This 132-nucleotide sequence from Castor canadensis belongs to the Rfam family "Small nucleolar RNA SNORA51". It is annotated as an H/ACA-box small nucleolar RNA. Lineage of the source: Eukaryota > Chordata > Tetrapoda > Euarchontoglires > Castor. ACA51 is a member of the H/ACA class of snoRNA that guide the sites of modification of uridines to pseudouridines.

RNA sequence: AGCCUCCUGGCGCUUACCACAAACUGUGUUCUUACACUGACUGUAUAGAAAGAGGAGUUGAAGUAAACCCACCCCAUGUGCACCUCAGCCCAGGCGCUGUGCUUUAGUCUGUAUUGUGAAUGGGAGACAGAG
Numbered sequence: 001a002g003c004c005u006c007c008u009g010g011c012g013c014u015u016a017c018c019a020c021a022a023a024c025u026g027u028g029u030u031c032u033u034a035c036a037c038u039g040a041c042u043g044u045a046u047a048g049a050a051a052g053a054g055g056a057g058u059u060g061a062a063g064u065a066a067a068c069c070c071a072c073c074c075c076a077u078g079u080g081c082a083c084c085u086c087a088g089c090c091c092a093g094g095c096g097c098u099g100u101g102c103u104u105u106a107g108u109c110u111g112u113a114u115u116g117u118g119a120a121u122g123g124g125a126g127a128c129a130g131a132g
Stems, first nucleotide, its partner, number of pairs: 002059001004057005020043002026037004072124001074123004086111003090107001092104004
The family's consensus secondary structure was predicted with PFOLD. Its family is annotated with RNA processing and nucleolus in the Gene Ontology.